[Rfam]
RNA sequence: UACUCAUCAAGAGAGGUGGAGGGAUAGGGCCCGAUGAUACCCAGCAACCCGGGGUUAUUCCGCAGGGUGCUAAUUCCCCCCGGAGGAAGUUCUGGGAAGAUGAGCC
Numbered sequence: 001u002a003c004u005c006a007u008c009a010a011g012a013g014a015g016g017u018g019g020a021g022g023g024a025u026a027g028g029g030c031c032c033g034a035u036g037a038u039a040c041c042c043a044g045c046a047a048c049c050c051g052g053g054g055u056u057a058u059u060c061c062g063c064a065g066g067g068u069g070c071u072a073a074u075u076c077c078c079c080c081c082g083g084a085g086g087a088a089g090u091u092c093u094g095g096g097a098a099g100a101u102g103a104g105c106c
Stems, first nucleotide, its partner, number of pairs: 003104006013042001015041003021032003027078003043071004048067002052061002075098001080095006